The record is a 136-nucleotide RNA sequence from Odocoileus virginianus, which matches "Small nucleolar RNA SNORA70" in Rfam. The organism belongs to Odocoileus virginianus, within Eukaryota.
RNA sequence: UUGCAGGCAACUAAGCUGACUGUGCUCUUUUCCCCGUGAGAGCCUGGUAGGCAAUGGCUACAGACCAGCAACCUCCUUGACAAUGUAUUCAGCCUGUUGCCUGUAUGGGUUGCCCUAAGGGACCUUGGAGACAGAC
Number, nucleotide and partner (000 for none) at each position: 001u000002u053003g052004c051005a000006g000007g000008c000009a000010a000011c000012u000013a000014a000015g000016c000017u000018g000019a048020c047021u046022g045023u000024g000025c042026u041027c040028u039029u000030u000031u000032c000033c000034c000035c000036g000037u000038g000039a028040g027041a026042g025043c000044c000045u022046g021047g020048u019049a000050g000051g004052c003053a002054a000055u000056g000057g000058c000059u000060a000061c000062a000063g000064a000065c000066c000067a000068g000069c000070a000071a000072c000073c000074u000075c000076c000077u000078u000079g124080a000081c000082a000083a000084u000085g000086u000087a000088u000089u000090c112091a111092g110093c109094c108095u107096g000097u000098u000099g000100c000101c000102u000103g000104u000105a000106u000107g095108g094109g093110u092111u091112g090113c000114c000115c000116u000117a000118a000119g000120g000121g000122a000123c000124c079125u000126u000127g000128g000129a000130g000131a000132c000133a000134g000135a000136c000
snoRNA U70 seems to be exclusive to mammals and is a member of the H/ACA class of snoRNA which contain H (ANANNA) and ACA box motifs. H/ACA box snoRNAs are involved in the conversion of uridines to pseudouridines (5-ribosyluracil) a constituent of structural RNAs (transfer, ribosomal, small nuclear, and small nucleolar). The match comes from Rfam's covariance-model search (109 bits).